RNA sequence: UCCAAUAUGUUGCCUUCAUCUGCAUUUGCACCUGCACCUUACUUUUCUUUUUCUUCAACAAUCAAGCUUCUACUUUCUCUAUGUUACCCACCAGAUUUUUUUUUAUUCAAGAGAAGCUGCAGGAAACUGAAGGGAAUAGAGGUGCAGGUGUGAGUGCAGGCGAAUGCCAUUUUGGC
Numbered sequence: 001u002c003c004a005a006u007a008u009g010u011u012g013c014c015u016u017c018a019u020c021u022g023c024a025u026u027u028g029c030a031c032c033u034g035c036a037c038c039u040u041a042c043u044u045u046u047c048u049u050u051u052u053c054u055u056c057a058a059c060a061a062u063c064a065a066g067c068u069u070c071u072a073c074u075u076u077c078u079c080u081a082u083g084u085u086a087c088c089c090a091c092c093a094g095a096u097u098u099u100u101u102u103u104u105a106u107u108c109a110a111g112a113g114a115a116g117c118u119g120c121a122g123g124a125a126a127c128u129g130a131a132g133g134g135a136a137u138a139g140a141g142g143u144g145c146a147g148g149u150g151u152g153a154g155u156g157c158a159g160g161c162g163a164a165u166g167c168c169a170u171u172u173u174g175g176c
Base pairs, nucleotide, nucleotide: 002175003174004173005172007170008169009168012167013166015164016163017162019160020159021158022157023156024155025154026153027152028151029150030149031148032147033146034145035144036143037142038141039140

A member of the RNA family "MIR530 microRNA precursor family" from Manihot esculenta, 176 nucleotides long.